[Rfam]
RNA: mir-219 microRNA precursor family
RNA sequence: CUAAGUGUUGAUUGUCCAAACGCAAUUCUUGUUCUAAUCAUUUCCAGAUAUCUAAAUUCAUACACUUCCGUUUCGGAAGUCAAAAAUGAAAACUGGCAUUGGUUAGAUGAGUUUUAGCUUCAAGAACUGUGUGUGGACAUCAAUUUUUAC
Numbered sequence: 001c002u003a004a005g006u007g008u009u010g011a012u013u014g015u016c017c018a019a020a021c022g023c024a025a026u027u028c029u030u031g032u033u034c035u036a037a038u039c040a041u042u043u044c045c046a047g048a049u050a051u052c053u054a055a056a057u058u059c060a061u062a063c064a065c066u067u068c069c070g071u072u073u074c075g076g077a078a079g080u081c082a083a084a085a086a087u088g089a090a091a092a093c094u095g096g097c098a099u100u101g102g103u104u105a106g107a108u109g110a111g112u113u114u115u116a117g118c119u120u121c122a123a124g125a126a127c128u129g130u131g132u133g134u135g136g137a138c139a140u141c142a143a144u145u146u147u148u149a150c
Stems, first nucleotide, its partner, number of pairs: 002149004007144001009142004014138005021131004026126006